RNA sequence: AUGAGUGCCUGUCCACCCCACACUUUUCGCAACUGCGCCAGACUUGACGGCCGUUUUGUCGGUUCCGUUGGAGUCGUGAGGCGCAACGCGAUAACCGAAGGCGAGCCGCUUGCCCCGUACGCCGGGGCGGCGGCUUUUUUA
Numbered sequence: 001a002u003g004a005g006u007g008c009c010u011g012u013c014c015a016c017c018c019c020a021c022a023c024u025u026u027u028c029g030c031a032a033c034u035g036c037g038c039c040a041g042a043c044u045u046g047a048c049g050g051c052c053g054u055u056u057u058g059u060c061g062g063u064u065c066c067g068u069u070g071g072a073g074u075c076g077u078g079a080g081g082c083g084c085a086a087c088g089c090g091a092u093a094a095c096c097g098a099a100g101g102c103g104a105g106c107c108g109c110u111u112g113c114c115c116c117g118u119a120c121g122c123c124g125g126g127g128c129g130g131c132g133g134c135u136u137u138u139u140u141a
Base pairs, nucleotide, nucleotide: 007038008037009035011033012032014029048088049087052083053082054081055080060076061075062074063073064072065071092103095100104135105134106133107132108131109130111129112128113127114126115125116124
Dot-bracket structure: ......(((.((.(..............)..)).).)).........((..((((....((((((.....))))))...))))...))...(..(....)..)((((((.((((((.......))))))))))))......